[Rfam]
RNA sequence: GGGUUUAUGGUGAUGAUACGAAUAUUUCGUGGACUAGAGUUUCAGAUAUGGGCUCUUCACCCAGAAUUUGAAGAUACAACCCUUGGCUGUCUGAGUAAAUCC
Dot-bracket structure: ((((((((...............................((((...(.((((.......))))..)...)))).....................))))))))
RNA: Small nucleolar RNA Z157/R69/R10